[Rfam]
RNA sequence: CGAGUCUUUCCACAGCCUCUACACAUGUCGGCCUUUCAUAGCGCAUGUGCAUAAGCUGUGGGAGUACUCU
Numbered sequence: 001c002g003a004g005u006c007u008u009u010c011c012a013c014a015g016c017c018u019c020u021a022c023a024c025a026u027g028u029c030g031g032c033c034u035u036u037c038a039u040a041g042c043g044c045a046u047g048u049g050c051a052u053a054a055g056c057u058g059u060g061g062g063a064g065u066a067c068u069c070u
Base pairs, nucleotide, nucleotide: 002069003068004067005066007064008063009062010061011060012059013058014057015056016055022049023048024047025046026045027044028043031042032041
A member of the RNA family "mir-2070 microRNA precursor family" from Branchiostoma belcheri, 70 nucleotides long. Rfam links the family to the GO terms RISC complex and miRNA-mediated post-transcriptional gene silencing.